[Rfam]
RNA sequence: GUUAGGCCUGCGAGGAGGUGGUCAUCCAGGGUAAGUGGCACCAAAGGUGCCCGCCAUCUCCUGCCGCCAAUCGGCGGUCUUGCAGGUCGGGAGGU
Dot-bracket structure: ....((((((((((((((((((............(.(((((.....))))))))))))))).(((((......))))).))))))))).......

A member of the RNA family "DUF1874 RNA", 95 nucleotides long. It is annotated as a cis-regulatory element. Rfam's curators put it in the seed alignment.